[Rfam]
RNA sequence: GGAUGCAUUACUGGGCUAAUCUUCUUUGGCAAAUAGCCACACUCUACUACUAUUGUUUGGUGCAAGUUUGGUCAUUAAUUGCCAAAGAAGAUUUGCUCCGUAACUCACCC
Numbered sequence: 001g002g003a004u005g006c007a008u009u010a011c012u013g014g015g016c017u018a019a020u021c022u023u024c025u026u027u028g029g030c031a032a033a034u035a036g037c038c039a040c041a042c043u044c045u046a047c048u049a050c051u052a053u054u055g056u057u058u059g060g061u062g063c064a065a066g067u068u069u070g071g072u073c074a075u076u077a078a079u080u081g082c083c084a085a086a087g088a089a090g091a092u093u094u095g096c097u098c099c100g101u102a103a104c105u106c107a108c109c110c
Stems, first nucleotide, its partner, number of pairs: 005106001008103002011100001013098004018093002021090004027084006034077002
Dot-bracket structure: ....(..((.(.((((.((.((((..((((((.((........................................)).))))))..)))).)).)))).).))..)....